The record is a 139-nucleotide RNA from Dioscorea zingiberensis, which matches "Small nucleolar RNA Z247" in Rfam. Gene Ontology terms of the family: RNA processing and nucleolus. It scores 51 bits against the family's covariance model. For this family Rfam cites "The high diversity of snoRNAs in plants: identification and comparative study of 120 snoRNA genes from Oryza sativa" (Chen et al., Nucleic Acids Res, 2003).
[Rfam]
RNA sequence: CCUCUCGAUGAUGAGGAGAUCGCCGUGUACAUGUUGGCGGGCUUGGAUACUGAGUUUGACCCACUGGUCACAUCGAUCAGUACGAGGUCAGAUCCAAUUUCUCUCAGCGAACUGUAUGCACACAUGUUGGCAUUUGAGG
Number, nucleotide and partner (000 for none) at each position: 001c000002c000003u000004c138005u137006c136007g135008a134009u000010g000011a000012u000013g000014a000015g000016g000017a000018g000019a000020u000021c000022g000023c000024c000025g000026u000027g000028u000029a000030c000031a000032u000033g000034u000035u000036g000037g000038c000039g000040g000041g000042c000043u000044u000045g000046g000047a000048u000049a000050c000051u000052g000053a000054g000055u000056u000057u000058g000059a000060c000061c000062c000063a000064c000065u000066g000067g000068u000069c000070a000071c000072a000073u000074c000075g000076a000077u000078c000079a000080g000081u000082a000083c000084g000085a000086g000087g000088u000089c107090a000091g105092a104093u000094c000095c000096a000097a000098u000099u000100u000101c000102u000103c000104u092105c091106a000107g089108c000109g000110a000111a000112c000113u000114g000115u000116a000117u000118g000119c000120a000121c000122a000123c000124a000125u000126g000127u000128u000129g000130g000131c000132a000133u000134u008135u007136g006137a005138g004139g000